The record is an 80-nucleotide sequence from Vibrio paucivorans, which matches "RpsF leader" in Rfam. Rfam's curators write: Conserved and widely distributed to many bacterial species RNA structure. Its family is annotated with negative regulation of translation and protein binding in the Gene Ontology.

RNA sequence: GUCAAUUAUCUUUAGUUCCUUGCUUCCUCUGGACGACCGAGCCAAUCGUGGAAGCUAAUAAUCCGUAAGGAGCAAACAUG
Numbered sequence: 001g002u003c004a005a006u007u008a009u010c011u012u013u014a015g016u017u018c019c020u021u022g023c024u025u026c027c028u029c030u031g032g033a034c035g036a037c038c039g040a041g042c043c044a045a046u047c048g049u050g051g052a053a054g055c056u057a058a059u060a061a062u063c064c065g066u067a068a069g070g071a072g073c074a075a076a077c078a079u080g
Base pairs, nucleotide, nucleotide: 015073016072017071018070019069020068021067022055023054024053025052026051027050030044031043032042